[Rfam]
RNA sequence: AAGUUGUGGUGAGGGCAGGCUGACACAUAGUCAUUGAAUCUCUCAUAGGCUUCAUCGAAUGUCUCAGUGGGGUAUUGCACAAAUGUUGAAAUCUUGUUGCGCAAAGCU
Number, nucleotide and partner (000 for none) at each position: 001a108002a000003g000004u105005u103006g102007u000008g000009g000010u000011g000012a000013g000014g000015g000016c000017a000018g000019g000020c000021u000022g000023a000024c000025a000026c000027a000028u000029a000030g000031u000032c000033a000034u000035u000036g000037a000038a000039u000040c000041u000042c000043u000044c000045a000046u000047a000048g000049g000050c000051u000052u000053c000054a000055u000056c000057g000058a073059a000060u071061g000062u000063c000064u000065c000066a000067g000068u000069g000070g000071g060072g000073u058074a000075u000076u000077g000078c000079a000080c000081a000082a000083a000084u000085g000086u000087u000088g000089a000090a000091a000092u000093c000094u000095u000096g000097u000098u000099g000100c000101g000102c006103a005104a000105a004106g000107c000108u001